Record summary
A member of the RNA family "Transposase-2 RNA", 69 nucleotides long. By type it is a small RNA.
[Rfam]
RNA sequence: GAAGUGCGAACCAAGCGUCGGUGCAAACCGUGUAAGUCUUGGAGCGGAUAGUCGCAAGACUGUCCUGCA
Numbered sequence: 001g002a003a004g005u006g007c008g009a010a011c012c013a014a015g016c017g018u019c020g021g022u023g024c025a026a027a028c029c030g031u032g033u034a035a036g037u038c039u040u041g042g043a044g045c046g047g048a049u050a051g052u053c054g055c056a057a058g059a060c061u062g063u064c065c066u067g068c069a
Base pairs, nucleotide, nucleotide: 011042012041013040014039015038019030020029021028022027046065047064048063049062050061051060052059053058
Overview
Pairs were carried over by alignment from the consensus structure, which is taken from published work.